[Rfam]
RNA: Group II catalytic intron D1-D4-7
Organism: Martinezella rhizogenes
RNA sequence: CCGACCGUUCCAUCGGUCGUUCCCUACCCGAACAUGCGAAGUUGGCAACGACUCCGUGUGGAGCUUCGGGGACAACGUAACCACCGGGUGACCGGUCCACCGAACCGUGAGGCGAAGUGGAAACUGCCAGCACAAAGGCGGUGAGGUGC
Numbered sequence: 001c002c003g004a005c006c007g008u009u010c011c012a013u014c015g016g017u018c019g020u021u022c023c024c025u026a027c028c029c030g031a032a033c034a035u036g037c038g039a040a041g042u043u044g045g046c047a048a049c050g051a052c053u054c055c056g057u058g059u060g061g062a063g064c065u066u067c068g069g070g071g072a073c074a075a076c077g078u079a080a081c082c083a084c085c086g087g088g089u090g091a092c093c094g095g096u097c098c099a100c101c102g103a104a105c106c107g108u109g110a111g112g113c114g115a116a117g118u119g120g121a122a123a124c125u126g127c128c129a130g131c132a133c134a135a136a137g138g139c140g141g142u143g144a145g146g147u148g149c
Stems, first nucleotide, its partner, number of pairs: 002019006028069005033060006040053005083096005098119003105112002123142006